A member of the RNA family "Mason-Pfizer monkey virus packaging signal" from Rattus norvegicus, 269 nucleotides long. The match comes from Rfam's covariance-model search (163 bits). This family represents a group of sequences that are related to the Mason-Pfizer monkey virus (MPMV) packaging signal. For this family Rfam cites "Mutational analysis of the predicted secondary RNA structure of the Mason-Pfizer monkey virus packaging signal" (Mustafa et al., Virus Res, 2004). By type it is a cis-regulatory element. The base pairs follow the family's consensus structure, which was predicted with PFOLD.

RNA sequence: UGGCCCCCAACGUGUGGGGCCUGAAUACAGGGGAUUCCAUGAGGAAGAAGACUCAGGUGGCCGGCGUUGUAUAUAAAAAUUCCUUCAAACACUGUGGGAGCCUGCUGCAGCCAAAAUAUAUGUGAGUGAUAGAGUCUGAUUAUGGGACAAGCAUUAAGCCAACACUGCAUCUAUGUGAGACACUUAAAAGAGGCAUUAAGAGUGCUAGGUGUAAUGGUAAAACCAAUGAUUUAUUUAAUUUUUUGAUUUUGUUAAGGACCUUUGCCCUU
Numbered sequence: 001u002g003g004c005c006c007c008c009a010a011c012g013u014g015u016g017g018g019g020c021c022u023g024a025a026u027a028c029a030g031g032g033g034a035u036u037c038c039a040u041g042a043g044g045a046a047g048a049a050g051a052c053u054c055a056g057g058u059g060g061c062c063g064g065c066g067u068u069g070u071a072u073a074u075a076a077a078a079a080u081u082c083c084u085u086c087a088a089a090c091a092c093u094g095u096g097g098g099a100g101c102c103u104g105c106u107g108c109a110g111c112c113a114a115a116a117u118a119u120a121u122g123u124g125a126g127u128g129a130u131a132g133a134g135u136c137u138g139a140u141u142a143u144g145g146g147a148c149a150a151g152c153a154u155u156a157a158g159c160c161a162a163c164a165c166u167g168c169a170u171c172u173a174u175g176u177g178a179g180a181c182a183c184u185u186a187a188a189a190g191a192g193g194c195a196u197u198a199a200g201a202g203u204g205c206u207a208g209g210u211g212u213a214a215u216g217g218u219a220a221a222a223c224c225a226a227u228g229a230u231u232u233a234u235u236u237a238a239u240u241u242u243u244u245g246a247u248u249u250u251g252u253u254a255a256g257g258a259c260c261u262u263u264g265c266c267c268u269u
Stems, first nucleotide, its partner, number of pairs: 006033003012028003038050001040048001081124001083122001084120001093109005130150001132148001135146004155198003158194003205245001207243003211239002216231003220227001254269004259264001